[Rfam]
RNA sequence: UGACGAGAAUGAUGAUAACAAUCAAUCAGUUAUCCCUAUCCGAAUUAAAGAAUGAGGAUAUUGGACUCACUGACUCGUCC
Numbered sequence: 001u002g003a004c005g006a007g008a009a010u011g012a013u014g015a016u017a018a019c020a021a022u023c024a025a026u027c028a029g030u031u032a033u034c035c036c037u038a039u040c041c042g043a044a045u046u047a048a049a050g051a052a053u054g055a056g057g058a059u060a061u062u063g064g065a066c067u068c069a070c071u072g073a074c075u076c077g078u079c080c
Stems, first nucleotide, its partner, number of pairs: 002079006
Dot-bracket structure: .((((((..................................................................)))))).
Small nucleolar RNA R38: an 80-nucleotide RNA from Chara braunii. NCBI's taxonomy places the organism under Eukaryota, Viridiplantae, Streptophytina, Charophyceae, Chara. The family's RNA type in Rfam is C/D-box small nucleolar RNA. On this family, see Bachellerie et al., Trends Biochem Sci 1995: "Antisense snoRNAs: a family of nucleolar RNAs with long complementarities to rRNA". About the family: snoR38 is a C/D box small nucleolar RNA conserved across yeast, human, Arabidopsis and rice. It is encoded in the intron of elongation factor-1 gamma in both pombe and cerevisiae. snoR38 guides the methylation of 2'-O-ribose sites in 28S rRNA.